[Rfam]
RNA: Eukaryotic large subunit ribosomal RNA, nucleotides 2884 to 3275
RNA sequence: GACAGUGUCGCAAUAGUAAUUCAACCUAGUACGAGAGGAACCGUUGAUUCGCACAAUUGGUCAUCGCGCUUGGUUGAAAAGCCAGUGGCGCGAAGCUACCGUGCGCUGGAUUAUGACUGAACGCCUCUAAGUCAGAAUCUGGGCUAGAAACGACGCGUGUGCCCGCCGCACGUUUGCCGACCAAUAGUAGGGGCUCGUCCCCAAAGGCACAUGCCGUUGGUGAUGCCCGCGCGACGGAUGAGCCGCGCGGGCCGCCUUGAAGUACUAUUCCUACCGAGCGGUGGGUAGAAUCCUUUGCAGACGACUUAAGUACGCGACGGGGUAUUGUUAGUGGCAGAGUGGCCUUGCUACCAUGAUCCACUGAGAUUCAGCCCCGUGUCGCUCCGAUUCGU
Dot-bracket structure: ....((((((...((((.(.(((((.................))))).)(((((...(((....(((((((((((....))))))..)))))...)))..))))).(((....(((((...........)))))....))).))))....))))))......(((((((............................................................................................................)))))))...(((((.(..(.......)..).....(((((((((.((.....((((.(..((((........))))..)))))....))....)))..))))))...)))))..